[Rfam]
RNA sequence: UGCACUGUAUGGUAUCUGCAUCCAGCAGACUCUUCCUGAUGGCAUGUUCAAAAAGCAGUGCAAUAUUCAAAUCAACAUGUGGCAUCGUUGGUUCUCAAGCUGCUGUGCUUGCAGAACCUGGUAGUUUUGUUGAAACAAGC
Numbered sequence: 001u002g003c004a005c006u007g008u009a010u011g012g013u014a015u016c017u018g019c020a021u022c023c024a025g026c027a028g029a030c031u032c033u034u035c036c037u038g039a040u041g042g043c044a045u046g047u048u049c050a051a052a053a054a055g056c057a058g059u060g061c062a063a064u065a066u067u068c069a070a071a072u073c074a075a076c077a078u079g080u081g082g083c084a085u086c087g088u089u090g091g092u093u094c095u096c097a098a099g100c101u102g103c104u105g106u107g108c109u110u111g112c113a114g115a116a117c118c119u120g121g122u123a124g125u126u127u128u129g130u131u132g133a134a135a136c137a138a139g140c
Stems, first nucleotide, its partner, number of pairs: 002061006015054001017052001018047004023042001024040001026038003064129002069125001072121003081109005
The record is a 140-nucleotide RNA sequence from Pogona vitticeps, which matches "Small nucleolar RNA SNORA8" in Rfam. Pairs were carried over by alignment from the consensus structure, which was predicted with RNAfold. The family's RNA type in Rfam is H/ACA-box small nucleolar RNA. Rfam describes the family as follows. ACA8 is a member of the H/ACA class of snoRNA that guide the sites of modification of uridines to pseudouridines. The source organism's lineage runs through Eukaryota, Toxicofera, Iguania, Amphibolurinae and Pogona. Rfam links the family to the GO terms RNA processing and nucleolus.